[Rfam]
Description: Shown here is a 67-nucleotide RNA sequence from Bacillus mesophilum, a member of the family "Bacillaceae-1 RNA". The base pairs follow the family's consensus structure, which is taken from published work. The family's RNA type in Rfam is small RNA.
RNA sequence: UAAUAAGGAACGCAGACUAAGUUCGCCACGUCCUGUAGCAACGUCUGCACAACUCACAUCCUGUGGA
Numbered sequence: 001u002a003a004u005a006a007g008g009a010a011c012g013c014a015g016a017c018u019a020a021g022u023u024c025g026c027c028a029c030g031u032c033c034u035g036u037a038g039c040a041a042c043g044u045c046u047g048c049a050c051a052a053c054u055c056a057c058a059u060c061c062u063g064u065g066g067a
Stems, first nucleotide, its partner, number of pairs: 012048006025039002028036002054066004